[Rfam]
RNA sequence: CUAUCAUCAGAGUGAUCUGAUGAGAUGGAUUAUAAGAAGUCAGCCGAGGGCAUAGUAGGAGUAAUUUUCUGCACUCCGAAGGCC
Numbered sequence: 001c002u003a004u005c006a007u008c009a010g011a012g013u014g015a016u017c018u019g020a021u022g023a024g025a026u027g028g029a030u031u032a033u034a035a036g037a038a039g040u041c042a043g044c045c046g047a048g049g050g051c052a053u054a055g056u057a058g059g060a061g062u063a064a065u066u067u068u069c070u071g072c073a074c075u076c077c078g079a080a081g082g083c084c
Stems, first nucleotide, its partner, number of pairs: 001027001004023008040047002049084003058077005
Description: This 84-nucleotide sequence belongs to the Rfam family "Group II catalytic intron D1-D4-1". It is one of the family's seed sequences.